Rfam assigns this 369-nucleotide sequence from Rhodohalobacter barkolensis to the family "Bacterial RNase P class A".
By type it is a ribozyme.
Its Rfam clan is "RNaseP clan".
Taxonomically the source falls in Rhodohalobacter (Bacteria, Balneolota, Balneolales, Balneolaceae).
Nucleotides: 369
Base pairs, nucleotide, nucleotide: 001365002364003363004362005361006360007359008358009357010356011354012320013319014318015317016316017315018314020039021038022037023036024035025034026033027032044352045351046350048349049348050347051346052345053227054226055225056224060256065223066222067221068220069219070084071083072082073081074080085104086102087101088100089099090098091097092096105218106217110216111215112212113211114210127157128156129153130152131151132150134148135147136146137145165183166182167181168180169179170178184207185205186204187203188202189201190199191198192197231277232276233275234274240268241267242266243265244264245263251261254258284303285302286301287300288299289298290297291296
Number, partner (000 for none) and nucleotide at each position: 001365g002364a003363a004362g005361a006360u007359u008358u009357c010356c011354g012320g013319g014318c015317a016316a017315u018314c019000g020039c021038u022037u023036c024035c025034c026033g027032a028000c029000g030000u031000g032027u033026c034025g035024g036023g037022a038021a039020g040000a041000g042000g043000a044352a045351a046350g047000u048349c049348c050347g051346a052345a053227c054226a055225c056224c057000a058000a059000c060256g061000a062000g063000a064000a065223c066222c067221g068220u069219g070084c071083u072082u073081c074080c075000u076000a077000a078000c079000a080074g081073g082072a083071a084070g085104g086102u087101c088100u089099c090098u091097u092096u093000u094000u095000u096092a097091a098090a099089g100088a101087g102086g103000a104085c105218a106217g107000a108000a109000a110216g111215u112212g113211c114210c115000a116000c117000a118000g119000a120000a121000a122000a123000c124000a125000g126000a127157c128156a129153g130152c131151c132150u133000u134148u135147c136146c137145g138000g139000u140000u141000u142000a143000g144000c145137c146136g147135g148134a149000c150132g151131g152130g153129u154000g155000a156128u157127g158000g159000u160000g161000a162000a163000a164000a165183g166182g167181u168180g169179a170178g171000g172000u173000a174000a175000g176000a177000g178170c179169u180168c181167a182166c183165c184207g185205c186204c187203c188202c189201c190199a191198c192197g193000g194000u195000g196000a197192c198191g199190u200000c201189g202188g203187g204186g205185g206000g207184c208000a209000g210114g211113g212112u213000a214000a215111a216110c217106c218105u219069c220068a221067c222066g223065g224056g225055g226054u227053g228000c229000a230000a231277g232276u233275u234274c235000a236000c237000g238000c239000a240268g241267g242266c243265u244264g245263u246000g247000c248000g249000c250000c251261u252000c253000u254258c255000g256060u257000c258254g259000c260000u261251a262000u263245a264244c265243a266242g267241c268240c269000g270000g271000g272000u273000a274234g275233a276232a277231c278000g279000c280000u281000u282000g283000a284303g285302c286301u287300u288299c289298g290297g291296a292000g293000c294000g295000a296291u297290c298289c299288g300287g301286a302285g303284c304000c305000u306000a307000g308000a309000c310000a311000a312000a313000u314018g315017a316016u317015u318014g319013u320012c321000a322000u323000c324000c325000c326000g327000a328000u329000u330000u331000a332000u333000c334000g335000g336000g337000a338000c339000a340000c341000a342000g343000a344000a345052u346051u347050c348049g349048g350046c351045u352044u353000a354011c355000a356010g357009g358008a359007a360006a361005u362004c363003u364002u365001u366000a367000c368000g369000a